Shown here is an 88-nucleotide RNA sequence from Triticum aestivum, a member of the family "mir-156 microRNA precursor family".
Rfam describes the family as follows. This family represents the plant microRNA (miRNA) precursor mir-156.
The literature on the family includes a 2002 paper in Genes Dev by Reinhart et al., "MicroRNAs in plants".
The match comes from Rfam's covariance-model search (84 bits).
[Rfam]
RNA sequence: CUGACAGAAGAGAGUGAGCACACGCGGUGGUUUCCUAGCAUGCGAGCGCCAUGCUUGGAGCUGCGCGUGCUCACCCUCUCUCUGUCAG
Numbered sequence: 001c002u003g004a005c006a007g008a009a010g011a012g013a014g015u016g017a018g019c020a021c022a023c024g025c026g027g028u029g030g031u032u033u034c035c036u037a038g039c040a041u042g043c044g045a046g047c048g049c050c051a052u053g054c055u056u057g058g059a060g061c062u063g064c065g066c067g068u069g070c071u072c073a074c075c076c077u078c079u080c081u082c083u084g085u086c087a088g
Stems, first nucleotide, its partner, number of pairs: 001088008010078003014074008023065003

Rfam 15.1 lists 1,401 matches to the family in 221 species.